[Rfam]
RNA sequence: UCUUGAGUGUGAGUAUGUCCCAUGCAAUAUUUGGGAUAUACUUAUGCUCAAA
Numbered sequence: 001u002c003u004u005g006a007g008u009g010u011g012a013g014u015a016u017g018u019c020c021c022a023u024g025c026a027a028u029a030u031u032u033g034g035g036a037u038a039u040a041c042u043u044a045u046g047c048u049c050a051a052a
Base pairs, nucleotide, nucleotide: 006048007047008046009045010044011043012042014040015039016038018036019035020034021033022031